RNA sequence: GACCCACUUUUCACUUUGCCAAUUGGACUUAUGGCUUUAUUGGUCAUUCAUGUGGGACAAAGGAAAUAUCCUUUUAAAACUCAAGAAAACCGGGUGCUUGUCUUGUAUCCUGUCAGAGGAAACAAAU
Numbered sequence: 001g002a003c004c005c006a007c008u009u010u011u012c013a014c015u016u017u018g019c020c021a022a023u024u025g026g027a028c029u030u031a032u033g034g035c036u037u038u039a040u041u042g043g044u045c046a047u048u049c050a051u052g053u054g055g056g057a058c059a060a061a062g063g064a065a066a067u068a069u070c071c072u073u074u075u076a077a078a079a080c081u082c083a084a085g086a087a088a089a090c091c092g093g094g095u096g097c098u099u100g101u102c103u104u105g106u107a108u109c110c111u112g113u114c115a116g117a118g119g120a121a122a123c124a125a126a127u
Stems, first nucleotide, its partner, number of pairs: 032059002035056002041050003069120006082105001083103001085101001087099002090096001